[Rfam]
RNA sequence: ACUCUCUGGUCGGAUCGGCCCUCCACUGGUUUUUGCCGCGGUGAUAUUUCAAGUAUAAUUAUCACCGGGUGAAAAUCAGAGCAGGGCUGAUUCCACCGG
Numbered sequence: 001a002c003u004c005u006c007u008g009g010u011c012g013g014a015u016c017g018g019c020c021c022u023c024c025a026c027u028g029g030u031u032u033u034u035g036c037c038g039c040g041g042u043g044a045u046a047u048u049u050c051a052a053g054u055a056u057a058a059u060u061a062u063c064a065c066c067g068g069g070u071g072a073a074a075a076u077c078a079g080a081g082c083a084g085g086g087c088u089g090a091u092u093c094c095a096c097c098g099g
Stems, first nucleotide, its partner, number of pairs: 016089007024081001026079012039067001041065006

Shown here is a 99-nucleotide RNA sequence from Caenorhabditis latens, a member of the family "mir-36 microRNA precursor family". It scores 71 bits against the family's covariance model. The family's consensus secondary structure was predicted with WAR. For this family Rfam cites "Patterns of flanking sequence conservation and a characteristic upstream motif for microRNA gene identification" (Ohler et al., RNA, 2004). The family is grouped with related families in Rfam's "mir-36 clan".